This 116-nucleotide sequence from Bacillus sp. MUM 116 belongs to the Rfam family "PyrR binding site". About the family: This family represents the PyrR binding site and terminator structure. This RNA structure is found upstream of a variety of genes involved in pyrimidine biosynthesis and transport. The alignment also includes a portion of the antiterminator structure. NCBI's taxonomy places the organism under Bacteria, Bacillati, Bacillota, Bacillaceae, Bacillus. The match comes from Rfam's covariance-model search (63 bits).

RNA sequence: AUCCUUUUUAAAUGCAGUCCCGUGAGGCUGACAAAGAGGAAAAAACCGGGUUAUUAUUCAAAAUUCGGUAAUUUUCUAACCUCUUUGUGCCAUCAUGGACAAAGAGGUUUUUUAAU
Dot-bracket structure: ..(((((((.....(((((......)))))..))))))).((..((((((((.(.....).))))))))..))....(((((((((((..........))))))))))).......